[Rfam]
RNA sequence: AUUUUGGGUUUUUAAUAGCUCCUUAGAACAGUAAUGUUCUAACGCAAAUAGGGAAAAUUGCAAGGACCUCUCUUUUAUAGAGACAAUUUGCAGCGGAGCUUGAUUCGAUGUAUCUCUUUUAGAGAGAGGAUCAAGAACGUUCAACGACUAAUCGGUGAGUUACAUCAACAAUAAACCGGACACGAUAACCCUACAUCCAAUGAAGCUAAUUCAUUGGUUGAAGACAUAGUCUAAGCCCAAUCGUGAGAUUGGG
Dot-bracket structure: .((.(.........).))........(((......)))..........[[[[......((((((....(((((.....)))))...))))))((.....(....((...................)).....).....))...(.(((((.......................................]]]]...((((((((.....)))))))).........)))))).....(((((....)))))..
A member of the RNA family "Group I catalytic intron" from Mortierella polycephala, 253 nucleotides long. Lineage of the source: Eukaryota > Opisthokonta > Mortierellomycota > Mortierellomycetes > Mortierella. Group I catalytic introns are large self-splicing ribozymes. Gene Ontology term of the family: Group I intron splicing. The family's consensus secondary structure is taken from published work.